[Rfam]
Nucleotides: 141
Stems, first nucleotide, its partner, number of pairs: 020052005026047003034042002085117003090111006096104002130141004
Number, partner (000 for none) and nucleotide at each position: 001000a002000g003000c004000u005000u006000u007000g008000c009000g010000c011000a012000g013000u014000g015000g016000c017000a018000g019000u020052a021051u022050c023049g024048u025000a026047a027046c028045c029000g030000a031000u032000g033000a034042g035041g036000u037000a038000a039000a040000u041035c042034c043000g044000a045028g046027g047026u048024g049023c050022g051021a052020u053000u054000a055000u056000u057000g058000c059000u060000a061000g062000u063000u064000g065000a066000a067000a068000a069000c070000u071000u072000u073000a074000a075000c076000c077000a078000a079000u080000a081000c082000c083000c084000c085117g086116c087115c088000a089000u090111g091110u092109g093108c094107a095106c096104g097103u098000g099000a100000a101000a102000u103097a104096c105000c106095g107094u108093g109092c110091g111090c112000u113000a114000c115087g116086g117085c118000a119000a120000u121000u122000u123000u124000u125000g126000g127000a128000a129000g130141c131140c132139u133138c134000u135000a136000c137000g138133g139132g140131g141130g